[Rfam]
RNA sequence: GUUGCUACUUGGACUUUUGGCUCAGCUCAAAGUGCAGCACCUGUUCUUAUCAGCUUAAUAUUUGAUAUGGUCCCUAUUUGGGGGCCAUUGAUAUUAAACUGACUUUAGAUUGAAGCAAAGUGUUAGGGGCUUGCUCUGCCUUUACCAUAGGCUGACCUGGUUUUGCGGUAUUUCCAGGAUUCAGCCCAUCUAAA
Numbered sequence: 001g002u003u004g005c006u007a008c009u010u011g012g013a014c015u016u017u018u019g020g021c022u023c024a025g026c027u028c029a030a031a032g033u034g035c036a037g038c039a040c041c042u043g044u045u046c047u048u049a050u051c052a053g054c055u056u057a058a059u060a061u062u063u064g065a066u067a068u069g070g071u072c073c074c075u076a077u078u079u080g081g082g083g084g085c086c087a088u089u090g091a092u093a094u095u096a097a098a099c100u101g102a103c104u105u106u107a108g109a110u111u112g113a114a115g116c117a118a119a120g121u122g123u124u125a126g127g128g129g130c131u132u133g134c135u136c137u138g139c140c141u142u143u144a145c146c147a148u149a150g151g152c153u154g155a156c157c158u159g160g161u162u163u164u165g166c167g168g169u170a171u172u173u174c175c176a177g178g179a180u181u182c183a184g185c186c187c188a189u190c191u192a193a194a
Stems, first nucleotide, its partner, number of pairs: 008025002011022002014019001048067006069086007115145001117143004126137004150186005156178005
RNA: U2 spliceosomal RNA
Organism: Octopus sinensis